[Rfam]
RNA sequence: ACUCAACACUAAACAAUUCAAAUGGGUGAAUCACCGCUCCUAAAGCACGCCGGCUUGUCCCGGAUCCUUGAACCGCGGGUUAACCCAAAUCUUGUCAUAACGAGUUU
Number, nucleotide and partner (000 for none) at each position: 001a000002c000003u000004c000005a000006a000007c000008a000009c000010u000011a000012a000013a000014c000015a000016a000017u000018u000019c000020a000021a000022a000023u087024g086025g085026g084027u083028g000029a000030a000031u000032c000033a000034c078035c077036g076037c075038u000039c000040c000041u000042a000043a069044a068045g067046c000047a000048c000049g000050c063051c062052g061053g060054c000055u000056u000057g000058u000059c000060c053061c052062g051063g050064a000065u000066c000067c045068u044069u043070g000071a000072a000073c000074c000075g037076c036077g035078g034079g000080u000081u000082a000083a027084c026085c025086c024087a023088a000089a000090u000091c000092u000093u000094g000095u000096c000097a000098u000099a000100a000101c000102g000103a000104g000105u000106u000107u000
Source information
The family of this 107-nucleotide RNA sequence from Flavobacterium agri is "6S-Flavo RNA". It scores 88 bits against the family's covariance model. NCBI's taxonomy places the organism under Bacteria, Pseudomonadati, Bacteroidota, Flavobacteriia, Flavobacterium.